[Rfam]
RNA sequence: GAAUGAGAGUGAGAAUCUCUCAAACCGAUUGACUAAGGGUUCCUGGGCAAGGGUCGUCCUCCCAGGGUAAGUCGGAUCCUAAGGCGAGGCUGAAAAGCGUAGUCGAUGGGAAACAGGUUAAUAUUCCUGUACCUACGAAUUGUGUGAUGGAGUGACGGAGAAGGUUAUUAUGUGCCGGUUAUUGGAUUCCGGUUUAAAUAGCAAGGUUAGUAAGUUGGCAAAUCCGCUUACUAUUAAGACUAAGUUAUGAGUACGAGCGACCCCUUCGGGUAGUAGCGAAGACAUAUAUAUCAUGCUUCCAAGAAAAGCUUCUAGCGUUAAACAAUUAGUAGCCCGUACCGAGAACGAACACACGUGGUCAAGGAGAAUAUCCUAAGGUUAG
Numbered sequence: 001g002a003a004u005g006a007g008a009g010u011g012a013g014a015a016u017c018u019c020u021c022a023a024a025c026c027g028a029u030u031g032a033c034u035a036a037g038g039g040u041u042c043c044u045g046g047g048c049a050a051g052g053g054u055c056g057u058c059c060u061c062c063c064a065g066g067g068u069a070a071g072u073c074g075g076a077u078c079c080u081a082a083g084g085c086g087a088g089g090c091u092g093a094a095a096a097g098c099g100u101a102g103u104c105g106a107u108g109g110g111a112a113a114c115a116g117g118u119u120a121a122u123a124u125u126c127c128u129g130u131a132c133c134u135a136c137g138a139a140u141u142g143u144g145u146g147a148u149g150g151a152g153u154g155a156c157g158g159a160g161a162a163g164g165u166u167a168u169u170a171u172g173u174g175c176c177g178g179u180u181a182u183u184g185g186a187u188u189c190c191g192g193u194u195u196a197a198a199u200a201g202c203a204a205g206g207u208u209a210g211u212a213a214g215u216u217g218g219c220a221a222a223u224c225c226g227c228u229u230a231c232u233a234u235u236a237a238g239a240c241u242a243a244g245u246u247a248u249g250a251g252u253a254c255g256a257g258c259g260a261c262c263c264c265u266u267c268g269g270g271u272a273g274u275a276g277c278g279a280a281g282a283c284a285u286a287u288a289u290a291u292c293a294u295g296c297u298u299c300c301a302a303g304a305a306a307a308g309c310u311u312c313u314a315g316c317g318u319u320a321a322a323c324a325a326u327u328a329g330u331a332g333c334c335c336g337u338a339c340c341g342a343g344a345a346c347g348a349a350c351a352c353a354c355g356u357g358g359u360c361a362a363g364g365a366g367a368a369u370a371u372c373c374u375a376a377g378g379u380u381a382g
Stems, first nucleotide, its partner, number of pairs: 004022006023380004031360004037340002042066006051059002073336003078109002083104003087100001089098003113130005133332004138327006144316002149312005157299004163292003169286005174193005194253001198248004205241003209232007217225002257277002260274002346355002362374004
A member of the RNA family "Bacterial large subunit ribosomal RNA" from Ureaplasma urealyticum, 382 nucleotides of a longer RNA. Rfam's curators put it in the seed alignment.